[Rfam]
RNA sequence: GAAUGACGUGAUGUUAUCUUUCGGGACUGACCUGCAGUGGAGAGAAUUACUUUACUGAUCAUAC
Numbered sequence: 001g002a003a004u005g006a007c008g009u010g011a012u013g014u015u016a017u018c019u020u021u022c023g024g025g026a027c028u029g030a031c032c033u034g035c036a037g038u039g040g041a042g043a044g045a046a047u048u049a050c051u052u053u054a055c056u057g058a059u060c061a062u063a064c
Stems, first nucleotide, its partner, number of pairs: 001064001003062004

Shown here is a 64-nucleotide sequence from Triplophysa rosa, a member of the family "Small nucleolar RNA SNORD2".
The family's RNA type in Rfam is C/D-box small nucleolar RNA.
Rfam links the family to the GO terms nucleolus and RNA processing.
The source organism's lineage runs through Eukaryota, Deuterostomia, Chordata, Actinopteri and Triplophysa.
The base pairs follow the family's consensus structure, which was predicted with WAR.
The match comes from Rfam's covariance-model search (54 bits).